RNA sequence: GAGCGGCGCCGGGCCCCUCUGGCGGGAUUUUUUCAUCCUGCGAUGUCGGAGCUGCCAA
Numbered sequence: 001g002a003g004c005g006g007c008g009c010c011g012g013g014c015c016c017c018u019c020u021g022g023c024g025g026g027a028u029u030u031u032u033u034c035a036u037c038c039u040g041c042g043a044u045g046u047c048g049g050a051g052c053u054g055c056c057a058a
Stems, first nucleotide, its partner, number of pairs: 006052002009049004022041007
terC RNA: a 58-nucleotide RNA from Aestuariivirga litoralis.
By type it is a cis-regulatory element.
The base pairs follow the family's consensus structure, which is taken from published work.